[Rfam]
RNA sequence: CAAUGCAAUAGAGGUUGCGAUACUCACGAAAUAUUUAGGAGUCGACGAAGAUGUUGAUUAUUUAUUUCAGGAAUAUCGCCGAAACAGAAUAUUAUUUCGUCUAUAUAUUUUGUUGGGCUGUAAAAGCAUAUUUUACAGACUGUCCUGGACAAUUCCAGGGAGCGCUAUAUGAUUU
Numbered sequence: 001c002a003a004u005g006c007a008a009u010a011g012a013g014g015u016u017g018c019g020a021u022a023c024u025c026a027c028g029a030a031a032u033a034u035u036u037a038g039g040a041g042u043c044g045a046c047g048a049a050g051a052u053g054u055u056g057a058u059u060a061u062u063u064a065u066u067u068c069a070g071g072a073a074u075a076u077c078g079c080c081g082a083a084a085c086a087g088a089a090u091a092u093u094a095u096u097u098c099g100u101c102u103a104u105a106u107a108u109u110u111u112g113u114u115g116g117g118c119u120g121u122a123a124a125a126g127c128a129u130a131u132u133u134u135a136c137a138g139a140c141u142g143u144c145c146u147g148g149a150c151a152a153u154u155c156c157a158g159g160g161a162g163c164g165c166u167a168u169a170u171g172a173u174u175u
Base pairs, nucleotide, nucleotide: 008168009167010166011165017079018078019077020076021075022074024072025071031065032064033063036060037059038058083114084113085112086111087110088109089108090107091106092105115141116140118138119137120136121135122134123133124132125131143160144159145158146157147156148155149154
Rfam assigns this 175-nucleotide RNA sequence from Lactobacillus iners to the family "Lysine riboswitch aptamer". The match comes from Rfam's covariance-model search (81 bits). Rfam links the family to the GO term lysine biosynthetic process. The organism belongs to Lactobacillus iners, within Bacteria. The family's consensus secondary structure is taken from published work.